[Rfam]
RNA sequence: GUACAGAUGAUGAGCAUUGCGGUAUGAGGGGUUACGAUGAUACUGUAAACGCUUUCUGAUGUA
Number, nucleotide and partner (000 for none) at each position: 001g000002u063003a062004c061005a060006g000007a000008u000009g000010a000011u000012g055013a053014g052015c051016a000017u000018u000019g000020c045021g044022g043023u042024a041025u040026g000027a000028g000029g000030g000031g000032u000033u000034a000035c000036g000037a000038u000039g000040a025041u024042a023043c022044u021045g020046u000047a000048a000049a000050c000051g015052c014053u013054u000055u012056c000057u000058g000059a000060u005061g004062u003063a002
Shown here is a 63-nucleotide RNA from Alaudala cheleensis, a member of the family "Small nucleolar RNA Z39". Gene Ontology terms of the family: RNA processing and nucleolus.